This 103-nucleotide RNA from Pelosinus fermentans belongs to the Rfam family "TPP riboswitch aptamer (THI element)". Vitamin B(1) in its active form thiamin pyrophosphate (TPP) is an essential coenzyme that is synthesised by coupling of pyrimidine and thiazole moieties in bacteria.
[Rfam]
RNA sequence: AUAAUUGGCUGGGGGAGCCGUUUGGCAGAGCGGGAAUAAAAAUUCCUGACCCUUUGAACCUGAUGUGGUUAGUACCAACGUAGGGAAGCUGUUUUUAUAUAUU
Numbered sequence: 001a002u003a004a005u006u007g008g009c010u011g012g013g014g015g016a017g018c019c020g021u022u023u024g025g026c027a028g029a030g031c032g033g034g035a036a037u038a039a040a041a042a043u044u045c046c047u048g049a050c051c052c053u054u055u056g057a058a059c060c061u062g063a064u065g066u067g068g069u070u071a072g073u074a075c076c077a078a079c080g081u082a083g084g085g086a087a088g089c090u091g092u093u094u095u096u097a098u099a100u101a102u103u
Base pairs, nucleotide, nucleotide: 006091007090008089009088010087011053012052013051014050016047017026018025019024033046034045035044036043037042059084060083061082062081066077067076068075